The record is a 65-nucleotide RNA sequence from Geomicrobium sp. JCM 19039, which matches "DUF3800-VIII RNA" in Rfam. It is annotated as a small RNA.
RNA sequence: ACCACCCGAUUGAACCGAAGGCUUGCGUUUAUAUGUGAGCUACUUAGUAGGUGAUAUUGGGUGGC
Numbered sequence: 001a002c003c004a005c006c007c008g009a010u011u012g013a014a015c016c017g018a019a020g021g022c023u024u025g026c027g028u029u030u031a032u033a034u035g036u037g038a039g040c041u042a043c044u045u046a047g048u049a050g051g052u053g054a055u056a057u058u059g060g061g062u063g064g065c
Stems, first nucleotide, its partner, number of pairs: 002064009014052003020041009
About the family: Bacteroidetes, Cyanobacteria, Firmicutes, Planctomycetes (1 example), Proteobacteria, Tenericutes (1 example).